RNA sequence: GAUAUGCGAUGAAGCGAAAGGUUGCUGCUAUUUGCAGGUAAUUUUCGCCGAGUAUGUCCGAUUUUAAACCGGGCGACAA
Numbered sequence: 001g002a003u004a005u006g007c008g009a010u011g012a013a014g015c016g017a018a019a020g021g022u023u024g025c026u027g028c029u030a031u032u033u034g035c036a037g038g039u040a041a042u043u044u045u046c047g048c049c050g051a052g053u054a055u056g057u058c059c060g061a062u063u064u065u066a067a068a069c070c071g072g073g074c075g076a077c078a079a
Stems, first nucleotide, its partner, number of pairs: 014048003018045004025037004055078004062073003
The family of this 79-nucleotide RNA sequence from Fumia xinanensis is "S10-Clostridia ribosomal protein leader". Taxonomically the source falls in Fumia (Bacteria, Bacillota, Clostridia, Oscillospiraceae). By type it is a cis-regulatory leader. A search with the family's covariance model found it, with a score of 49 bits.